The record is a 134-nucleotide sequence from Senna tora, which matches "MIR168 microRNA precursor family" in Rfam.

[Rfam]
RNA sequence: CACUUCGCGGUCUCUAAUUCGCUUGGUGCAGGUCGGGAACCUUCUUGCUGCGAUUUUCAUAAUAGAGGCAGAGUUGGCGGCAGCGAGGAGCUGGAUCCCGCCUUGCAUCAACUGAAUCGGAGACCGCGGUGAAG
Numbered sequence: 001c002a003c004u005u006c007g008c009g010g011u012c013u014c015u016a017a018u019u020c021g022c023u024u025g026g027u028g029c030a031g032g033u034c035g036g037g038a039a040c041c042u043u044c045u046u047g048c049u050g051c052g053a054u055u056u057u058c059a060u061a062a063u064a065g066a067g068g069c070a071g072a073g074u075u076g077g078c079g080g081c082a083g084c085g086a087g088g089a090g091c092u093g094g095a096u097c098c099c100g101c102c103u104u105g106c107a108u109c110a111a112c113u114g115a116a117u118c119g120g121a122g123a124c125c126g127c128g129g130u131g132a133a134g
Base pairs, nucleotide, nucleotide: 013121014120017117018116019115020114023111024110025109026108027107028106029105030104031103032102034100035099036098037097038096040094041093
The base pairs follow the family's consensus structure, which was predicted with WAR.